[Rfam]
A member of the RNA family "Archaeal large subunit ribosomal RNA" from Coccomyxa sp. Obi, 341 nucleotides of a longer RNA.
RNA sequence: CACCUUUACUACAAUUUGCUGCUGAGGGAAGAGAUGUAUCGUGUAGAAUAGGUGGGAGCCACCCCUACCAUGAUUUUGUGGUGGAUAACAUCAUGAAGUGAUGUAAGGGACUGGGCGUCGUUGAAAUACCACCCUUUACAUCUCAUCCUUCUAACCUGGGUAAAGAUAGAGACAACAGCAAAUGGGUAGUUUCAUUGGGGCGAUGGCUUUCAAAAGAGUAUCGAAAGCGUGCGAAGGUAGGCUCAAGCUGGUCGGAAACCAGUAGAAGAGCGCAAUGGUAUAAGCCUGCCUGACUGCAAGACCAACACGUCGAGCAGGGACGAAAGUCGGCCAUAGUGACC
Number, nucleotide and partner (000 for none) at each position: 001c000002a000003c000004c000005u000006u000007u000008a190009c189010u188011a187012c000013a000014a000015u182016u181017u180018g179019c178020u177021g176022c000023u000024g151025a150026g149027g148028g147029a146030a000031g144032a143033g142034a141035u140036g139037u138038a137039u000040c000041g134042u000043g000044u000045a000046g000047a000048a000049u000050a000051g133052g132053u131054g130055g129056g000057a000058g116059c115060c114061a000062c000063c000064c000065c000066u000067a000068c000069c000070a000071u000072g000073a000074u000075u000076u000077u000078g000079u000080g000081g000082u000083g000084g000085a000086u000087a000088a000089c000090a000091u000092c000093a000094u000095g000096a000097a000098g000099u000100g000101a000102u000103g000104u000105a000106a000107g000108g000109g000110a000111c000112u000113g000114g060115g059116c058117g000118u000119c000120g000121u000122u000123g000124a000125a000126a000127u000128a000129c055130c054131a053132c052133c051134c041135u000136u000137u038138a037139c036140a035141u034142c033143u032144c031145a000146u029147c028148c027149u026150u025151c024152u000153a000154a000155c000156c169157u168158g167159g000160g000161u000162a000163a000164a000165g000166a000167u158168a157169g156170a000171g000172a000173c000174a000175a000176c021177a020178g019179c018180a017181a016182a015183u000184g000185g000186g000187u011188a010189g009190u008191u000192u000193c205194a204195u203196u202197g000198g000199g000200g000201c000202g196203a195204u194205g193206g228207c227208u226209u225210u224211c223212a000213a000214a000215a000216g000217a000218g000219u000220a000221u000222c000223g211224a210225a209226a208227g207228c206229g000230u000231g331232c330233g000234a000235a000236g000237g289238u288239a287240g286241g285242c284243u269244c268245a000246a000247g263248c262249u261250g260251g259252u000253c000254g000255g000256a000257a000258a000259c251260c250261a249262g248263u247264a000265g000266a000267a000268g244269a243270g279271c278272g000273c000274a000275a000276u000277g000278g271279u270280a000281u000282a000283a000284g242285c241286c240287u239288g238289c237290c000291u000292g000293a000294c317295u316296g315297c314298a000299a000300g311301a310302c309303c000304a000305a000306c000307a000308c000309g302310u301311c300312g000313a000314g297315c296316a295317g294318g000319g328320a000321c326322g000323a000324a000325a000326g321327u000328c319329g000330g232331c231332c000333a000334u000335a000336g000337u000338g000339a000340c000341c000
Pairs were carried over by alignment from the consensus structure, which is taken from published work.